[Rfam]
RNA sequence: UUUGAGGUGAAUUGAUUUAUGUUUGGACACACUUGUUUAAAAGUGGUUUUUACAAGUUGACGUUGUUUAGAUAG
Numbered sequence: 001u002u003u004g005a006g007g008u009g010a011a012u013u014g015a016u017u018u019a020u021g022u023u024u025g026g027a028c029a030c031a032c033u034u035g036u037u038u039a040a041a042a043g044u045g046g047u048u049u050u051u052a053c054a055a056g057u058u059g060a061c062g063u064u065g066u067u068u069a070g071a072u073a074g
Stems, first nucleotide, its partner, number of pairs: 012060007021053002025049004030045005